[Rfam]
RNA sequence: AGCAAAGGCGUGAUUGGGUGCAGUGCUGGUGAACCUUUGAGCCAGUUUCAGACUUUCUUGCUAAUUAAUUUAGCCGGCCGGCAGGUUCAUCAACGCUGCACUCAAUAAUGCCUUCC
Numbered sequence: 001a002g003c004a005a006a007g008g009c010g011u012g013a014u015u016g017g018g019u020g021c022a023g024u025g026c027u028g029g030u031g032a033a034c035c036u037u038u039g040a041g042c043c044a045g046u047u048u049c050a051g052a053c054u055u056u057c058u059u060g061c062u063a064a065u066u067a068a069u070u071u072a073g074c075c076g077g078c079c080g081g082c083a084g085g086u087u088c089a090u091c092a093a094c095g096c097u098g099c100a101c102u103c104a105a106u107a108a109u110g111c112c113u114u115c116c
Stems, first nucleotide, its partner, number of pairs: 006113006013106013027092002030089003